About this RNA:
This 94-nucleotide RNA from Leptonychotes weddellii belongs to the Rfam family "Small nucleolar SNORD12/SNORD106". The family's consensus secondary structure was predicted with RNAalifold. NCBI's taxonomy places the organism under Eukaryota, Metazoa, Gnathostomata, Sarcopterygii, Leptonychotes. Rfam links the family to the GO terms nucleolus and RNA processing.
RNA sequence: AAUAAUGCAGCUGAUGACAUAACAUUUUUCCCCAUCAGAUUAACCGUGUUGAUCCAGCUGAACCAUUAGCCAGUGUUUUAUCUGAUGCAUUGGA
Numbered sequence: 001a002a003u004a005a006u007g008c009a010g011c012u013g014a015u016g017a018c019a020u021a022a023c024a025u026u027u028u029u030c031c032c033c034a035u036c037a038g039a040u041u042a043a044c045c046g047u048g049u050u051g052a053u054c055c056a057g058c059u060g061a062a063c064c065a066u067u068a069g070c071c072a073g074u075g076u077u078u079u080a081u082c083u084g085a086u087g088c089a090u091u092g093g094a
Base pairs, nucleotide, nucleotide: 003092004091005090006089007088008087009086
Source information: It scores 65 bits against the family's covariance model. Its Rfam clan is "SNORD12 clan".